[Rfam]
RNA: chrB-a RNA
RNA sequence: AUGGGGAAGCGAUCGUCCCCACGAGGCGGCAUGCCCAAGAAUCGCGUCCGUUUUCCGAAGAGGACGCACUAUG
Numbered sequence: 001a002u003g004g005g006g007a008a009g010c011g012a013u014c015g016u017c018c019c020c021a022c023g024a025g026g027c028g029g030c031a032u033g034c035c036c037a038a039g040a041a042u043c044g045c046g047u048c049c050g051u052u053u054u055c056c057g058a059a060g061a062g063g064a065c066g067c068a069c070u071a072u073g
Stems, first nucleotide, its partner, number of pairs: 002021005044067006